[Rfam]
RNA sequence: AACGGUUGUUGGCGCGAUGUUCCCGAACACGGGCUACGUGGUCGUGCACAUUUUGCGUAAACGCUGUGCAGAUACCUGAGCCCGCCACCGAGCGGGCUUUUUUUU
Number, nucleotide and partner (000 for none) at each position: 001a000002a000003c000004g000005g000006u000007u000008g000009u000010u044011g043012g042013c000014g039015c038016g037017a000018u000019g000020u000021u000022c033023c032024c031025g030026a000027a000028c000029a000030c025031g024032g023033g022034c000035u000036a000037c016038g015039u014040g000041g000042u012043c011044g010045u000046g000047c000048a000049c000050a000051u000052u000053u000054u000055g000056c000057g000058u000059a000060a000061a000062c000063g000064c000065u000066g000067u000068g000069c000070a000071g000072a000073u000074a000075c000076c000077u000078g000079a098080g097081c096082c095083c094084g093085c092086c090087a000088c000089c000090g086091a000092g085093c084094g083095g082096g081097c080098u079099u000100u000101u000102u000103u000104u000105u000

The record is a 105-nucleotide RNA sequence from Pantoea sp. Eser, which matches "Tryptophan operon leader" in Rfam. The literature on the family includes a 1982 paper in Annu Rev Genet by Kolter and Yanofsky, "Attenuation in amino acid biosynthetic operons". Gene Ontology terms of the family: transcriptional attenuation by ribosome and tryptophan biosynthetic process. Rfam's curators write: At least 6 amino acid operons are known to be regulated by attenuation. In each a leader sequence of 150-200 bp is found upstream of the first gene in the operon. The source organism's lineage runs through Bacteria, Pseudomonadota, Gammaproteobacteria, Enterobacterales and Pantoea.